[Rfam]
RNA sequence: ACUUAUCCCCACGGGAGCCCGCAUGGAAGCGGGCUGAGAUGGCCGCUGGAACCGCGGCCGCACCGUUCGAACCUGUCUGGUUAGCACCAGCGAAGGAAGAGAGGUCAGGCCCAUGU
Numbered sequence: 001a002c003u004u005a006u007c008c009c010c011a012c013g014g015g016a017g018c019c020c021g022c023a024u025g026g027a028a029g030c031g032g033g034c035u036g037a038g039a040u041g042g043c044c045g046c047u048g049g050a051a052c053c054g055c056g057g058c059c060g061c062a063c064c065g066u067u068c069g070a071a072c073c074u075g076u077c078u079g080g081u082u083a084g085c086a087c088c089a090g091c092g093a094a095g096g097a098a099g100a101g102a103g104g105u106c107a108g109g110c111c112c113a114u115g116u
Stems, first nucleotide, its partner, number of pairs: 006104002009101001011066004017034005041059005072096003077090004

Source information:
Rfam assigns this 116-nucleotide RNA to the family "TPP riboswitch aptamer (THI element)". Gene Ontology term of the family: thiamine pyrophosphate binding. Pairs were carried over by alignment from the consensus structure, which is taken from published work.